[Rfam]
Small nucleolar RNA ACA64: a 124-nucleotide RNA from Sorex araneus. It is one of the family's seed sequences. On this family, see Schattner et al., RNA 2006: "A computational screen for mammalian pseudouridylation guide H/ACA RNAs".

RNA sequence: GCCCGCUGAAAGUCACCUGCGGCCUUGCCCGUGGCCAUGGGUGAGACUCGGCGCCCAGAGCAUGGGGGCUUUAGCUCACCGCCCACUUUUGGUGUGGGGAGGUGAAACCCAGGCCCCGACAGCG
Numbered sequence: 001g002c003c004c005g006c007u008g009a010a011a012g013u014c015a016c017c018u019g020c021g022g023c024c025u026u027g028c029c030c031g032u033g034g035c036c037a038u039g040g041g042u043g044a045g046a047c048u049c050g051g052c053g054c055c056c057a058g059a060g061c062a063u064g065g066g067g068g069c070u071u072u073a074g075c076u077c078a079c080c081g082c083c084c085a086c087u088u089u090u091g092g093u094g095u096g097g098g099g100a101g102g103u104g105a106a107a108c109c110c111a112g113g114c115c116c117c118g119a120c121a122g123c124g
Base pairs, nucleotide, nucleotide: 005052006051007050008049009048013044014043015042016041021036022035023034024033065117067115068114069113070112071111076105077104078103079102080101084096085095086094